Background:
U5 spliceosomal RNA: a 118-nucleotide RNA from Leptidea sinapis. NCBI's taxonomy places the organism under Eukaryota, Insecta, Neoptera, Obtectomera, Leptidea. It is annotated as a spliceosomal small nuclear RNA. It scores 103 bits against the family's covariance model.
RNA sequence: UCACUCUGGUUUCCCUUCAAAACGUAUAAAUCUUUCGCCUUUUACUAAAGAUUUCCGUGGAGGGGAACACUCAAAUGAGUCUAAAUAUAUUUUUUGAUAGUUUCACUUAGGUGAAACU
Numbered sequence: 001u002c003a004c005u006c007u008g009g010u011u012u013c014c015c016u017u018c019a020a021a022a023c024g025u026a027u028a029a030a031u032c033u034u035u036c037g038c039c040u041u042u043u044a045c046u047a048a049a050g051a052u053u054u055c056c057g058u059g060g061a062g063g064g065g066a067a068c069a070c071u072c073a074a075a076u077g078a079g080u081c082u083a084a085a086u087a088u089a090u091u092u093u094u095u096g097a098u099a100g101u102u103u104c105a106c107u108u109a110g111g112u113g114a115a116a117c118u
Stems, first nucleotide, its partner, number of pairs: 003080004009068011028054008100117006
U5 RNA is a component of both types of known spliceosome.
Pairs were carried over by alignment from the consensus structure, which is taken from published work.
A reference for the family is Thomas et al. (1990), "The spliceosomal snRNAs of Caenorhabditis elegans", Nucleic Acids Res.